[Rfam]
RNA sequence: GAGACGCCCCUAUGGAGCAGGACUUGCUUCAGUGGGGCAUUGGGGAUCACUGAGUCUGCCCCUUGAGUGUGUCACU
Numbered sequence: 001g002a003g004a005c006g007c008c009c010c011u012a013u014g015g016a017g018c019a020g021g022a023c024u025u026g027c028u029u030c031a032g033u034g035g036g037g038c039a040u041u042g043g044g045g046a047u048c049a050c051u052g053a054g055u056c057u058g059c060c061c062c063u064u065g066a067g068u069g070u071g072u073c074a075c076u
Stems, first nucleotide, its partner, number of pairs: 001075001003073005009067001011065002014062002017059003021056003029053007038043001
RNA: mir-9229 microRNA precursor family
Organism: Myotis myotis